[Rfam]
Actinobacteria sRNA Ms_IGR-7: a 118-nucleotide RNA from Pseudonocardia ammonioxydans. Rfam classes the family as a small RNA. For this family Rfam cites "Identification of small RNAs in Mycobacterium smegmatis using heterologous Hfq" (Li et al., RNA, 2013). The base pairs follow the family's consensus structure. Taxonomically the source falls in Pseudonocardia (Bacteria, Bacillati, Pseudonocardiales, Pseudonocardiaceae).
RNA sequence: UGAAAGUGCCUCUCUCGAGCCGGGUUGAUCGGUGCGUCGCAACACCCAUCAUCCCAGCUCAGGAGGCACUUUCCUUCUUCACGCGCCGCAUUACGACGAGGUUCAUCUGCGGAUCGAG
Numbered sequence: 001u002g003a004a005a006g007u008g009c010c011u012c013u014c015u016c017g018a019g020c021c022g023g024g025u026u027g028a029u030c031g032g033u034g035c036g037u038c039g040c041a042a043c044a045c046c047c048a049u050c051a052u053c054c055c056a057g058c059u060c061a062g063g064a065g066g067c068a069c070u071u072u073c074c075u076u077c078u079u080c081a082c083g084c085g086c087c088g089c090a091u092u093a094c095g096a097c098g099a100g101g102u103u104c105a106u107c108u109g110c111g112g113a114u115c116g117a118g
Base pairs, nucleotide, nucleotide: 002073003072004071005070006069007068008067009066010065011064012063013062017060018059020057022055023054024053026051027050028049029048031046033044034043100115101114102113103112104111